Record summary: Rfam assigns this 116-nucleotide sequence from Halalkalibacter akibai to the family "Guanidine-I riboswitch aptamer". This family represents a conserved RNA structure found upstream of the ykkC and yxkD genes in Bacillus subtilis and related genes in other bacteria. The function of this family is unclear although it has been suggested that it may function to switch on efflux pumps and detoxification systems in response to harmful environmental molecules. It scores 89 bits against the family's covariance model. Rfam 15.1 lists 1,509 matches to the family in 1,281 species. NCBI's taxonomy places the organism under Bacteria, Bacillati, Bacillota, Bacilli, Halalkalibacter akibai.
[Rfam]
RNA sequence: GAAAAAGCUUUCUAGGGUUCCGUUAAAUCACUUGUUGAUUUAAGCCUGGUCCGAGAGAGAGCGGUAUAGACGCUUUAAGCGUUUAUACUACACGGAAGGAUAAAAGCCUGGGAGAC
Numbered sequence: 001g002a003a004a005a006a007g008c009u010u011u012c013u014a015g016g017g018u019u020c021c022g023u024u025a026a027a028u029c030a031c032u033u034g035u036u037g038a039u040u041u042a043a044g045c046c047u048g049g050u051c052c053g054a055g056a057g058a059g060a061g062c063g064g065u066a067u068a069g070a071c072g073c074u075u076u077a078a079g080c081g082u083u084u085a086u087a088c089u090a091c092a093c094g095g096a097a098g099g100a101u102a103a104a105a106g107c108c109u110g111g112g113a114g115a116c
Stems, first nucleotide, its partner, number of pairs: 007062006015052002020049002022046001023043008063089010091111001093114001097109003